Rfam assigns this 57-nucleotide RNA sequence from Aphanothece hegewaldii to the family "Glutamine riboswitch aptamer (glnA leader)". The organism belongs to Aphanothece hegewaldii, within Bacteria. A search with the family's covariance model found it, with a score of 56 bits. On this family, see Ames and Breaker, RNA Biol 2011: "Bacterial aptamers that selectively bind glutamine".

RNA sequence: UUCGUUCAUCCCUGUUGUGGGGACGGAAGUAGGACGGAUUGUCCGAAGGAACGCGCU
Numbered sequence: 001u002u003c004g005u006u007c008a009u010c011c012c013u014g015u016u017g018u019g020g021g022g023a024c025g026g027a028a029g030u031a032g033g034a035c036g037g038a039u040u041g042u043c044c045g046a047a048g049g050a051a052c053g054c055g056c057u
Stems, first nucleotide, its partner, number of pairs: 003053005009023005026054001032044005